Shown here is a 96-nucleotide RNA sequence from Quercus lobata, a member of the family "Small nucleolar RNA Z102/R77".
The family's consensus secondary structure was predicted with PFOLD.
The family is grouped with related families in Rfam's "SNORD44 clan".
A search with the family's covariance model found it, with a score of 48 bits.
For this family Rfam cites "Identification of 66 box C/D snoRNAs in Arabidopsis thaliana: extensive gene duplications generated multiple isoforms predicting new ribosomal RNA 2'-O-methylation sites" (Barneche et al., J Mol Biol, 2001).
Its family is annotated with RNA processing and nucleolus in the Gene Ontology.
RNA sequence: AGAUGAUGAGGGUCAAGGAUAUGUUUCCCUAUUGGUUUGAUUGCCAAUAUGAUGGCAUCAAUCAUGUGAUAGGCUACUAGCUCUAGCUGUUCAUUC
Numbered sequence: 001a002g003a004u005g006a007u008g009a010g011g012g013u014c015a016a017g018g019a020u021a022u023g024u025u026u027c028c029c030u031a032u033u034g035g036u037u038u039g040a041u042u043g044c045c046a047a048u049a050u051g052a053u054g055g056c057a058u059c060a061a062u063c064a065u066g067u068g069a070u071a072g073g074c075u076a077c078u079a080g081c082u083c084u085a086g087c088u089g090u091u092c093a094u095u096c
Base pairs, nucleotide, nucleotide: 002095003094004093005092039059042057043056044055045054